[Rfam]
RNA: Purine riboswitch aptamer
Organism: Psychrobacillus soli
RNA sequence: AUCAUAAUUUAAUUGUGUUGUCGUAUAACGUUGGGAAUAAGGCCCAAAAGUCUCUACCGAAUCACCGUAAAUGAUUCGACUACGAUGAGUGGAAAGUAGUUU
Numbered sequence: 001a002u003c004a005u006a007a008u009u010u011a012a013u014u015g016u017g018u019u020g021u022c023g024u025a026u027a028a029c030g031u032u033g034g035g036a037a038u039a040a041g042g043c044c045c046a047a048a049a050g051u052c053u054c055u056a057c058c059g060a061a062u063c064a065c066c067g068u069a070a071a072u073g074a075u076u077c078g079a080c081u082a083c084g085a086u087g088a089g090u091g092g093a094a095a096g097u098a099g100u101u102u
Stems, first nucleotide, its partner, number of pairs: 018088008031047005058078007